[Rfam]
RNA sequence: AAUUGAAAAAGGCAAACCCGGUCAAAGCCGGUGACGCAAAGCUACAGGGGCUAAGGUGCCAAGAAGACACUAUGCCAGCCAGUUACCAAG
Numbered sequence: 001a002a003u004u005g006a007a008a009a010a011g012g013c014a015a016a017c018c019c020g021g022u023c024a025a026a027g028c029c030g031g032u033g034a035c036g037c038a039a040a041g042c043u044a045c046a047g048g049g050g051c052u053a054a055g056g057u058g059c060c061a062a063g064a065a066g067a068c069a070c071u072a073u074g075c076c077a078g079c080c081a082g083u084u085a086c087c088a089a090g
Stems, first nucleotide, its partner, number of pairs: 012037002018031005040084004047080002049076003056070003
Annotation
The family of this 90-nucleotide sequence from Paenibacillus sedimenti is "c-di-GMP-I riboswitch aptamer". The family's consensus secondary structure is taken from published work.